[Rfam]
RNA sequence: AAGGAUCUUCGGGGCAAGGUGAAAUUCCUGACCGGCGGUGACGCAUUCUAAUUAUGCGAAGCCCGCGACUCUCUGCUGCAUGAUGCUGCAGGGACUGACUUGGUGCAAUUCCAAGGCCGACGGUAUAGUCCGGAUGGUAGAAGAUCAUC
Numbered sequence: 001a002a003g004g005a006u007c008u009u010c011g012g013g014g015c016a017a018g019g020u021g022a023a024a025u026u027c028c029u030g031a032c033c034g035g036c037g038g039u040g041a042c043g044c045a046u047u048c049u050a051a052u053u054a055u056g057c058g059a060a061g062c063c064c065g066c067g068a069c070u071c072u073c074u075g076c077u078g079c080a081u082g083a084u085g086c087u088g089c090a091g092g093g094a095c096u097g098a099c100u101u102g103g104u105g106c107a108a109u110u111c112c113a114a115g116g117c118c119g120a121c122g123g124u125a126u127a128g129u130c131c132g133g134a135u136g137g138u139a140g141a142a143g144a145u146c147a148u149c
Stems, first nucleotide, its partner, number of pairs: 004146007017029003031129002033119002035066004061117002070094004099115005121132003
RNA: FMN riboswitch aptamer (RFN element)